[Rfam]
RNA sequence: CUCUACCACAUAGUCAGAUGCUGAUAGCCUAAGUGGCUAUCUCCCAGUACAAGGUAGGUAAAGGACUACGUUUCCGCGCCAUAGGCGAAAAACUAAAACAGCGCACACACCGAUAGUAGGAAUAUACGAAUUCCGUGUGUGC
Numbered sequence: 001c002u003c004u005a006c007c008a009c010a011u012a013g014u015c016a017g018a019u020g021c022u023g024a025u026a027g028c029c030u031a032a033g034u035g036g037c038u039a040u041c042u043c044c045c046a047g048u049a050c051a052a053g054g055u056a057g058g059u060a061a062a063g064g065a066c067u068a069c070g071u072u073u074c075c076g077c078g079c080c081a082u083a084g085g086c087g088a089a090a091a092a093c094u095a096a097a098a099c100a101g102c103g104c105a106c107a108c109a110c111c112g113a114u115a116g117u118a119g120g121a122a123u124a125u126a127c128g129a130a131u132u133c134c135g136u137g138u139g140u141g142c
Stems, first nucleotide, its partner, number of pairs: 003057004009053001013050002020044001023041007078086003103142008112133002120127001

The family of this 142-nucleotide sequence is "RT-14 RNA".
Rfam's curators put it in the seed alignment.